Rfam assigns this 50-nucleotide RNA sequence from Phytoamicus setariae to the family "Guanidine-II riboswitch aptamer (mini-ykkC)". Rfam's curators write: Simpler in structure and has fewer highly conserved nucleotide positions than the ykkC-yxkD leader. Gene Ontology term of the family: regulation of gene expression. The family's consensus secondary structure is taken from published work. A search with the family's covariance model found it, with a score of 34 bits. The source organism's lineage runs through Bacteria, Pseudomonadati, Alphaproteobacteria, Hyphomicrobiales and Phytoamicus.
RNA sequence: AACAGAGGACGACCUCCCUAUGUCAGGUUCAAACGAUCGGGACGACCCGA
Dot-bracket structure: .(..((((....))))..).................(((((....)))))